Rfam assigns this 64-nucleotide RNA from Crocosphaera chwakensis to the family "Cyano-1 RNA". The source organism's lineage runs through Bacteria, Bacillati, Cyanophyceae, Oscillatoriophycideae and Crocosphaera chwakensis. Rfam 15.1 lists 283 matches to the family in 194 species.
[Rfam]
RNA sequence: GAGAGAGUAAUGUAAGAAAGCACUUGGGGUCGAAACACGGCAAGACUCCCAGGUGUUUUCUAUU
Numbered sequence: 001g002a003g004a005g006a007g008u009a010a011u012g013u014a015a016g017a018a019a020g021c022a023c024u025u026g027g028g029g030u031c032g033a034a035a036c037a038c039g040g041c042a043a044g045a046c047u048c049c050c051a052g053g054u055g056u057u058u059u060c061u062a063u064u
Stems, first nucleotide, its partner, number of pairs: 015061008026050003029046003
Pairs were carried over by alignment from the consensus structure, which is taken from published work.
The family's RNA type in Rfam is small RNA.